[Rfam]
Nucleotides: 132
Stems, first nucleotide, its partner, number of pairs: 011026006028058003036051003039047002097119003101115006
Number, partner (000 for none) and nucleotide at each position: 001000c002000a003000a004000a005000g006000c007000a008000a009000g010000a011026a012025g013024a014023a015022g016021c017000a018000c019000c020000c021016g022015c023014u024013u025012c026011u027000c028058a029057c030056c031000u032000g033000g034000u035000u036051g037050a038049c039047g040046c041000c042000a043000u044000u045000g046040g047039u048000u049038g050037u051036u052000g053000a054000c055000a056030g057029g058028u059000u060000g061000a062000c063000g064000a065000c066000a067000g068000g069000u070000u071000u072000a073000u074000a075000u076000u077000a078000a079000a080000c081000c082000u083000u084000u085000u086000g087000a088000a089000u090000g091000u092000a093000u094000a095000a096000g097119u098118g099117u100000g101115g102114g103113u104112g105111u106110a107000g108000u109000u110106u111105g112104c113103g114102c115101c116000g117099a118098c119097g120000c121000u122000u123000u124000u125000u126000u127000u128000a129000u130000u131000g132000u